[Rfam]
RNA: permuted transfer-messenger RNA
RNA sequence: GGGCAUAAACGCGCACGGAAUAAGCGGAUCGGACCCGGGGGCGGUACCCGGCGGCUCCACCAAUCAUCCCUCGUUGGGGGACGGAACGGGGCCGAAACAGGAUCGACGAACGUGUAAAGGUGUUUGCUUUGUCCCGGUGAGGUACCACCGUUAUCGGUCCAAAACGCAUAGUUGCCAACGACAACCGUGCUCCGGCGAUGGCCCUCGCCGCCUAA
Numbered sequence: 001g002g003g004c005a006u007a008a009a010c011g012c013g014c015a016c017g018g019a020a021u022a023a024g025c026g027g028a029u030c031g032g033a034c035c036c037g038g039g040g041g042c043g044g045u046a047c048c049c050g051g052c053g054g055c056u057c058c059a060c061c062a063a064u065c066a067u068c069c070c071u072c073g074u075u076g077g078g079g080g081a082c083g084g085a086a087c088g089g090g091g092c093c094g095a096a097a098c099a100g101g102a103u104c105g106a107c108g109a110a111c112g113u114g115u116a117a118a119g120g121u122g123u124u125u126g127c128u129u130u131g132u133c134c135c136g137g138u139g140a141g142g143u144a145c146c147a148c149c150g151u152u153a154u155c156g157g158u159c160c161a162a163a164a165c166g167c168a169u170a171g172u173u174g175c176c177a178a179c180g181a182c183a184a185c186c187g188u189g190c191u192c193c194g195g196c197g198a199u200g201g202c203c204c205u206c207g208c209c210g211c212c213u214a215a
Stems, first nucleotide, its partner, number of pairs: 001134005013123004025112002029109003035051005052094007135150004